A member of the RNA family "mir-67 microRNA precursor family" from Neodiprion lecontei, 91 nucleotides long.
[Rfam]
RNA sequence: GACAACGUGGACUCACUCAACCGGGGUGUGAUGUUUGCCUCGAAGAGGCCCAGGAGGUCAUCACAACCUUUUUGAGUGAGCGAACGGUGUC
Numbered sequence: 001g002a003c004a005a006c007g008u009g010g011a012c013u014c015a016c017u018c019a020a021c022c023g024g025g026g027u028g029u030g031a032u033g034u035u036u037g038c039c040u041c042g043a044a045g046a047g048g049c050c051c052a053g054g055a056g057g058u059c060a061u062c063a064c065a066a067c068c069u070u071u072u073u074g075a076g077u078g079a080g081c082g083a084a085c086g087g088u089g090u091c
Stems, first nucleotide, its partner, number of pairs: 008083001010081001012080009024068002027065007
Dot-bracket structure: .......(.(.(((((((((...((.(((((((.........................))))))).))...)))))))))).)........
The organism belongs to Neodiprion, within Eukaryota.